RNA: mir-515 microRNA precursor family
Organism: Aotus nancymaae
RNA sequence: UUUCAUGCGGUGAUUCUCCAAAGGGAAGCACUUCUUGUCUGAAAUAAAACAAAGUGCUUCCUUUUAGAGAGCUACUGUCUGAGA
Dot-bracket structure: (((((.((((((.(.(((.((((((((((((((.((...........))..)))))))))))))).))).).)))))).)))))